[Rfam]
RNA sequence: AUACCUCUGGGAUGAACUGGUCCCUAAUAUGCAAUCACCAUCGCUUCACUUUGUCAGCUAAUGCAGUUUGAAUUUUAGCUGAUCAUUAAGGAUGGGAGAUUA
Numbered sequence: 001a002u003a004c005c006u007c008u009g010g011g012a013u014g015a016a017c018u019g020g021u022c023c024c025u026a027a028u029a030u031g032c033a034a035u036c037a038c039c040a041u042c043g044c045u046u047c048a049c050u051u052u053g054u055c056a057g058c059u060a061a062u063g064c065a066g067u068u069u070g071a072a073u074u075u076u077a078g079c080u081g082a083u084c085a086u087u088a089a090g091g092a093u094g095g096g097a098g099a100u101u102a
Base pairs, nucleotide, nucleotide: 038095039094040093041092042091053083054082055081056080057079058078059077060076

The family of this 102-nucleotide sequence from Phoenix dactylifera is "Small nucleolar RNA snoR99". It scores 69 bits against the family's covariance model. Rfam classes the family as an H/ACA-box small nucleolar RNA. Pairs were carried over by alignment from the consensus structure, which was predicted with WAR. Taxonomically the source falls in Phoenix (Eukaryota, Streptophyta, Euphyllophyta, Petrosaviidae).